[Rfam]
RNA sequence: UUCGUCUGUAGCCAACAGAGGAUGAGAACCUCCGCAGGAGGUUUGAGUCGAGCGGAGCGAGACAACGUUGCGUAGCAACGGCCCGCAGGGCGACGUUCUAAGUCGUCAUCCUCUCUCGCCGACCA
Numbered sequence: 001u002u003c004g005u006c007u008g009u010a011g012c013c014a015a016c017a018g019a020g021g022a023u024g025a026g027a028a029c030c031u032c033c034g035c036a037g038g039a040g041g042u043u044u045g046a047g048u049c050g051a052g053c054g055g056a057g058c059g060a061g062a063c064a065a066c067g068u069u070g071c072g073u074a075g076c077a078a079c080g081g082c083c084c085g086c087a088g089g090g091c092g093a094c095g096u097u098c099u100a101a102g103u104c105g106u107c108a109u110c111c112u113c114u115c116u117c118g119c120c121g122a123c124c125a
Stems, first nucleotide, its partner, number of pairs: 015116001017114005023108001033092002042087001044085002049059002066080006

Annotation
The family of this 125-nucleotide sequence from Enterobacterales bacterium CwR94 is "RtT RNA". It is annotated as a cis-regulatory element. The base pairs follow the family's consensus structure, which is taken from published work. Rfam 15.1 lists 651 matches to the family in 204 species. From the family's description: This family represents a bacterial cis-regulatory element known as RtT RNA. The exact function of RtT is unknown although it is thought that it may be involved in changing the cellular response in relation to amino acid starvation. For this family Rfam cites "A novel RNA product of the tyrT operon of Escherichia coli" (Bosl and Kersten, Nucleic Acids Res, 1991). The organism belongs to Enterobacterales, within Bacteria.